The record is a 102-nucleotide RNA sequence from Acidiphilium rubrum, which matches "Glycine riboswitch aptamer" in Rfam. Pairs were carried over by alignment from the consensus structure. Taxonomically the source falls in Acidiphilium (Bacteria, Pseudomonadati, Pseudomonadota, Acetobacterales). Its family is annotated with glycine biosynthetic process in the Gene Ontology.

RNA sequence: AAACGAAUCUCUGGAAAGCCGGCGCCCUGCGCCGCACCGACGGCGUAAGGACCGGGUCAACCCCGAUCCGAAUCUCUCAGGUUCCGCGACAGAGGGGGGUCA
Numbered sequence: 001a002a003a004c005g006a007a008u009c010u011c012u013g014g015a016a017a018g019c020c021g022g023c024g025c026c027c028u029g030c031g032c033c034g035c036a037c038c039g040a041c042g043g044c045g046u047a048a049g050g051a052c053c054g055g056g057u058c059a060a061c062c063c064c065g066a067u068c069c070g071a072a073u074c075u076c077u078c079a080g081g082u083u084c085c086g087c088g089a090c091a092g093a094g095g096g097g098g099g100u101c102a
Stems, first nucleotide, its partner, number of pairs: 008095006020034004036082003039078002043076001045074001049069002